Overview: Shown here is a 221-nucleotide sequence from Desulfobacter latus, a member of the family "HNH endonuclease-associated RNA and ORF (HEARO) RNA". On this family, see Weinberg et al., Nature 2009: "Exceptional structured noncoding RNAs revealed by bacterial metagenome analysis". It is annotated as a non-coding RNA gene. The family has 139 seed sequences and 952 matches in Rfam 15.1.
[Rfam]
RNA sequence: GUCAAACUACCCCUCCAGAAUCAAAGAUUCAGAAGGGGCUUGUAAAAGCCCAGGUUGACUAGCCUGAGUCCCAUUUGUUGGGACUACGUUCGGCAGGAUAUAGACACCUUUAGAUGUAUUCGCCGGCCCAAAGCGCUGUCGUGGCACUGUAAAAGCUCUGUGAGAAAGGAGCGGUCAACCACGUUGUAAAGCCUGCUGAACAUUGGCGAGGCGAAUCUUAC
Numbered sequence: 001g002u003c004a005a006a007c008u009a010c011c012c013c014u015c016c017a018g019a020a021u022c023a024a025a026g027a028u029u030c031a032g033a034a035g036g037g038g039c040u041u042g043u044a045a046a047a048g049c050c051c052a053g054g055u056u057g058a059c060u061a062g063c064c065u066g067a068g069u070c071c072c073a074u075u076u077g078u079u080g081g082g083a084c085u086a087c088g089u090u091c092g093g094c095a096g097g098a099u100a101u102a103g104a105c106a107c108c109u110u111u112a113g114a115u116g117u118a119u120u121c122g123c124c125g126g127c128c129c130a131a132a133g134c135g136c137u138g139u140c141g142u143g144g145c146a147c148u149g150u151a152a153a154a155g156c157u158c159u160g161u162g163a164g165a166a167a168g169g170a171g172c173g174g175u176c177a178a179c180c181a182c183g184u185u186g187u188a189a190a191g192c193c194u195g196c197u198g199a200a201c202a203u204u205g206g207c208g209a210g211g212c213g214a215a216u217c218u219u220a221c
Stems, first nucleotide, its partner, number of pairs: 001059005007054002011038002013035002018030004039048003062207003066203001067085007088201010104139002108133004113128001115126001116217001118216007141182004148177002153175001155172005161166001